[Rfam]
RNA sequence: GGAGGCGGGAGAGCGCCUGGUGGCCUUCACGAUCUUCAAAAUCGAUGGUCCCGGGGACCCCGGGACGGCGGGUUCGAUUCCCGUACGCCUCC
Numbered sequence: 001g002g003a004g005g006c007g008g009g010a011g012a013g014c015g016c017c018u019g020g021u022g023g024c025c026u027u028c029a030c031g032a033u034c035u036u037c038a039a040a041a042u043c044g045a046u047g048g049u050c051c052c053g054g055g056g057a058c059c060c061c062g063g064g065a066c067g068g069c070g071g072g073u074u075c076g077a078u079u080c081c082c083g084u085a086c087g088c089c090u091c092c
Stems, first nucleotide, its partner, number of pairs: 001092007009084001012027002015024003030044004048066005069083004
The record is a 92-nucleotide RNA from Actinomadura litoris, which matches "Selenocysteine transfer RNA" in Rfam. It scores 70 bits against the family's covariance model. For this family Rfam cites "Eukaryotic selenocysteine tRNA has the 9/4 secondary structure" (Mizutani and Goto, FEBS Lett, 2000). The family's consensus secondary structure is taken from published work.